[Rfam]
RNA sequence: GCGGCGGAAUCCGAAAAGCCGACAGAGUAGGAA
Numbered sequence: 001g002c003g004g005c006g007g008a009a010u011c012c013g014a015a016a017a018g019c020c021g022a023c024a025g026a027g028u029a030g031g032a033a
Base pairs, nucleotide, nucleotide: 002021003020004019005018010032011031012030
Rfam assigns this 33-nucleotide RNA to the family "DUF805b RNA".